[Rfam]
RNA sequence: AUAGUCUGCUGGGGGAGUUCUUGGGAACUGAGACGGGCAACGCCCGAACCCUUUGAACCUGAUCCGGUUUAUACCGGCGUAGGGAAGCGGCCAGAAACAAUC
Numbered sequence: 001a002u003a004g005u006c007u008g009c010u011g012g013g014g015g016a017g018u019u020c021u022u023g024g025g026a027a028c029u030g031a032g033a034c035g036g037g038c039a040a041c042g043c044c045c046g047a048a049c050c051c052u053u054u055g056a057a058c059c060u061g062a063u064c065c066g067g068u069u070u071a072u073a074c075c076g077g078c079g080u081a082g083g084g085a086a087g088c089g090g091c092c093a094g095a096a097a098c099a100a101u102c
Stems, first nucleotide, its partner, number of pairs: 006090005011052004017028004035045004058083004064077004